[Rfam]
ES036 (CssrF) sRNA: a 43-nucleotide RNA from Enterobacteriaceae bacterium strain FGI 57.
RNA sequence: AAAAUCAUGCAAAUUCAAUACAUUGCAGUUUUUAUGUAGGCCU
Dot-bracket structure: ...(...(((((..........)))))...)............
Numbered sequence: 001a002a003a004a005u006c007a008u009g010c011a012a013a014u015u016c017a018a019u020a021c022a023u024u025g026c027a028g029u030u031u032u033u034a035u036g037u038a039g040g041c042c043u
Stems, first nucleotide, its partner, number of pairs: 004031001008027005

It is annotated as a small RNA. On this family, see Rau et al., BMC Genomics 2015: "Differential expression of small RNAs under chemical stress and fed-batch fermentation in E. coli". Differentially expressed under several chemical stress conditions. Rfam 15.1 lists 273 matches to the family in 31 species. NCBI's taxonomy places the organism under Bacteria, Pseudomonadota, Gammaproteobacteria, Enterobacterales, Enterobacteriaceae.